Rfam assigns this 88-nucleotide RNA sequence from Pelolinea submarina to the family "c-di-GMP-I riboswitch aptamer". Lineage of the source: Bacteria > Bacillati > Chloroflexota > Anaerolineaceae > Pelolinea. A search with the family's covariance model found it, with a score of 77 bits. Pairs were carried over by alignment from the consensus structure, which is taken from published work.
RNA sequence: GUUCGACAAGGGCUAAGCCGGUGAAAGCUGGCGGCGCAAAGCUAUGGGUCUAAAACUCCAAAGGAGUUAUGACUGCCAGGCUACCGAA
Numbered sequence: 001g002u003u004c005g006a007c008a009a010g011g012g013c014u015a016a017g018c019c020g021g022u023g024a025a026a027g028c029u030g031g032c033g034g035c036g037c038a039a040a041g042c043u044a045u046g047g048g049u050c051u052a053a054a055a056c057u058c059c060a061a062a063g064g065a066g067u068u069a070u071g072a073c074u075g076c077c078a079g080g081c082u083a084c085c086g087a088a
Stems, first nucleotide, its partner, number of pairs: 012037002017032006040082004045078003048073003055067004
Its family is annotated with cyclic-di-GMP binding in the Gene Ontology.